[Rfam]
RNA sequence: UGCUAUGAUGGUGUAAUUUGCGUCUGACUCGGUGAACAGUGACAGUUGCCUGCUGUCUAUAAGCUGUCACGGGGUAUUGAUGUAUGCUAAAUUCUGAGCA
Numbered sequence: 001u002g003c004u005a006u007g008a009u010g011g012u013g014u015a016a017u018u019u020g021c022g023u024c025u026g027a028c029u030c031g032g033u034g035a036a037c038a039g040u041g042a043c044a045g046u047u048g049c050c051u052g053c054u055g056u057c058u059a060u061a062a063g064c065u066g067u068c069a070c071g072g073g074g075u076a077u078u079g080a081u082g083u084a085u086g087c088u089a090a091a092u093u094c095u096g097a098g099c100a
Stems, first nucleotide, its partner, number of pairs: 001100003021082004030072001032070003039064002041057005

A member of the RNA family "Small nucleolar RNA SNORD16" from Mastacembelus armatus, 100 nucleotides long. Lineage of the source: Eukaryota > Metazoa > Deuterostomia > Euteleosteomorpha > Mastacembelus. Gene Ontology terms of the family: nucleolus and RNA processing.